[Rfam]
RNA sequence: GGCCUAUUAGCUCGGUUGGUUAGAGCGUCGAGCUAAUAACGCGAAGGUCACAGGUUCGAGACCUGUAUAGGCCA
Numbered sequence: 001g002g003c004c005u006a007u008u009a010g011c012u013c014g015g016u017u018g019g020u021u022a023g024a025g026c027g028u029c030g031a032g033c034u035a036a037u038a039a040c041g042c043g044a045a046g047g048u049c050a051c052a053g054g055u056u057c058g059a060g061a062c063c064u065g066u067a068u069a070g071g072c073c074a
Stems, first nucleotide, its partner, number of pairs: 001073007010026004028044003032040001050066005
The record is a 74-nucleotide RNA sequence from Zingiber officinale, which matches "tRNA" in Rfam. Rfam links the family to the GO term triplet codon-amino acid adaptor activity. The family's RNA type in Rfam is transfer RNA. Lineage of the source: Eukaryota > Streptophytina > Liliopsida > commelinids > Zingiber.